This 79-nucleotide RNA sequence from Escherichia coli belongs to the Rfam family "Nucleoid-associated noncoding RNA 4 (CssrE)". A search with the family's covariance model found it, with a score of 65 bits. Taxonomically the source falls in Escherichia coli (Bacteria, Pseudomonadota, Enterobacteriaceae, Escherichia). On this family, see Peng et al., PLoS One 2011: "An integrated approach for finding overlooked genes in Shigella". Pairs were carried over by alignment from the consensus structure, which is taken from published work. By type it is a small RNA. Rfam describes the family as follows. In E. coli small RNA transcribed from repeated extragenic palindromic element (REP325) called nucleoid-associated ncRNA 4 (nRNA4) collaborates HU protein in condensing the DNA. The secondary structure but not the sequence of the RNA is important in nucleoid condensation. Also identified in Shigella as CssrE.

RNA sequence: GGCCGGAUAAGGCGUUCAAGCUGCAUCUGGCGAUACGGUGCACAAUGCCUGAUGCGACGCUGUCGCGUCUUAUCAUGCC
Numbered sequence: 001g002g003c004c005g006g007a008u009a010a011g012g013c014g015u016u017c018a019a020g021c022u023g024c025a026u027c028u029g030g031c032g033a034u035a036c037g038g039u040g041c042a043c044a045a046u047g048c049c050u051g052a053u054g055c056g057a058c059g060c061u062g063u064c065g066c067g068u069c070u071u072a073u074c075a076u077g078c079c
Stems, first nucleotide, its partner, number of pairs: 002031007011022003047078002050075005056069005